EcpR1: a 104-nucleotide RNA from Enterovirga rhinocerotis. Lineage of the source: Bacteria > Pseudomonadati > Pseudomonadota > Hyphomicrobiales > Enterovirga. Perviously named SmelC291, SmrC10, or Sra33. According to its overproduction phenotype it was renamed Elongated Cell Phenotype RNA1. Induced by stress,EcpR1 negatively regulates cell cycle master regulatory genes dnaA and gcrA at post-transcriptional level by base pairing between its strongly conserved GC-rich loop and the target mRNAs. It is annotated as a small RNA. Rfam links the family to the GO terms mRNA binding, regulation of translation in response to stress and negative regulation of cell cycle.
[Rfam]
RNA sequence: AUGCCCUACGAUGCUCAGGUCCGCCGCAUCUCCUGGGUUUCGAGGGCACGGCCGGCCCGGGAGCGGCACCAGCCUCCUCACAGUCGCUCCCGGCCGGCCACCUU
Numbered sequence: 001a002u003g004c005c006c007u008a009c010g011a012u013g014c015u016c017a018g019g020u021c022c023g024c025c026g027c028a029u030c031u032c033c034u035g036g037g038u039u040u041c042g043a044g045g046g047c048a049c050g051g052c053c054g055g056c057c058c059g060g061g062a063g064c065g066g067c068a069c070c071a072g073c074c075u076c077c078u079c080a081c082a083g084u085c086g087c088u089c090c091c092g093g094c095c096g097g098c099c100a101c102c103u104u
Stems, first nucleotide, its partner, number of pairs: 002048006009042002014037006050099008059090002